[Rfam]
RNA: DUF3800-I RNA
Organism: Clostridium sp. CAG:302
RNA sequence: UUGUAUUACCGGAGAGAAAUCUCGUCAGGUCGAUAGCUCAAUGUCGAUUUUAUUAAAUUAAGUGUAUGUUAAGUACACCGCUUGAGCCCAAGAGAGACUACUAGAUAGUCUCUUUUCUUUUUAGU
Numbered sequence: 001u002u003g004u005a006u007u008a009c010c011g012g013a014g015a016g017a018a019a020u021c022u023c024g025u026c027a028g029g030u031c032g033a034u035a036g037c038u039c040a041a042u043g044u045c046g047a048u049u050u051u052a053u054u055a056a057a058u059u060a061a062g063u064g065u066a067u068g069u070u071a072a073g074u075a076c077a078c079c080g081c082u083u084g085a086g087c088c089c090a091a092g093a094g095a096g097a098c099u100a101c102u103a104g105a106u107a108g109u110c111u112c113u114u115u116u117c118u119u120u121u122u123a124g125u
Stems, first nucleotide, its partner, number of pairs: 008030003011025001012023003036087005043082001045080002047058003062078006091115010